mir-3102 microRNA precursor family: a 106-nucleotide RNA from Jaculus jaculus. Gene Ontology terms of the family: miRNA-mediated post-transcriptional gene silencing and RISC complex. The family has 2 seed sequences and 15 matches in Rfam 15.1. The organism belongs to Jaculus, within Eukaryota. The family's consensus secondary structure was predicted with RNAalifold.
RNA sequence: GUGAGUGGCCAGGGUGGGGCUGGAUGACACAGGCAGGAAAGCCGUGGAGCUGCUCAGGGCUCCGCCCCCGCUGCCCUGGCCAGAGCACCCUAUUGGCUGCCCACAG
Numbered sequence: 001g002u003g004a005g006u007g008g009c010c011a012g013g014g015u016g017g018g019g020c021u022g023g024a025u026g027a028c029a030c031a032g033g034c035a036g037g038a039a040a041g042c043c044g045u046g047g048a049g050c051u052g053c054u055c056a057g058g059g060c061u062c063c064g065c066c067c068c069c070g071c072u073g074c075c076c077u078g079g080c081c082a083g084a085g086c087a088c089c090c091u092a093u094u095g096g097c098u099g100c101c102c103a104c105a106g
Stems, first nucleotide, its partner, number of pairs: 001104003005100007014093006020083004025078002030073003033068001036065001040061004